Rfam assigns this 119-nucleotide RNA sequence from Nocardia camponoti to the family "SAM (S-adenosyl methionine) riboswitch aptamer". Gene Ontology terms of the family: S-adenosylmethionine metabolic process and regulation of gene expression. The organism belongs to Nocardia, within Bacteria. The family's consensus secondary structure is taken from published work. The family has 40 seed sequences and 2,360 matches in Rfam 15.1.
RNA sequence: GGUCACGAGUAUCAGCACUGUAUCGAGCCCCGGCUCGCUGAUCGGCAACCCUCGCUUGGCGGUGGGGUGCCCCGGGUGACGACCAGGCGGUAUCGAUCCAGAUGCCGCAAGCGCUGGCU
Numbered sequence: 001g002g003u004c005a006c007g008a009g010u011a012u013c014a015g016c017a018c019u020g021u022a023u024c025g026a027g028c029c030c031c032g033g034c035u036c037g038c039u040g041a042u043c044g045g046c047a048a049c050c051c052u053c054g055c056u057u058g059g060c061g062g063u064g065g066g067g068u069g070c071c072c073c074g075g076g077u078g079a080c081g082a083c084c085a086g087g088c089g090g091u092a093u094c095g096a097u098c099c100a101g102a103u104g105c106c107g108c109a110a111g112c113g114c115u116g117g118c119u
Stems, first nucleotide, its partner, number of pairs: 001084004009043001011042006026035002044071003049067003053062001087108008
Annotation: The match comes from Rfam's covariance-model search (90 bits).